About this RNA: The record is a 71-nucleotide sequence from Stenotrophomonas panacihumi, which matches "int-alpA RNA" in Rfam. Lineage of the source: Bacteria > Pseudomonadati > Gammaproteobacteria > Lysobacterales > Stenotrophomonas.
Nucleotides: 071
Stems, first nucleotide, its partner, number of pairs: 001057008011022004028048005
Number, partner (000 for none) and nucleotide at each position: 001057c002056c003055c004054g005053g006052g007051g008050a009000u010000a011022g012021g013020g014019c015000g016000g017000c018000c019014g020013c021012c022011u023000g024000a025000c026000a027000a028048g029047c030046c031045g032044g033000a034000a035000c036000u037000g038000a039000u040000c041000c042000g043000g044032c045031c046030g047029g048028c049000u050008u051007c052006c053005c054004u055003g056002g057001g058000a059000u060000c061000u062000u063000c064000c065000u066000u067000c068000c069000g070000g071000a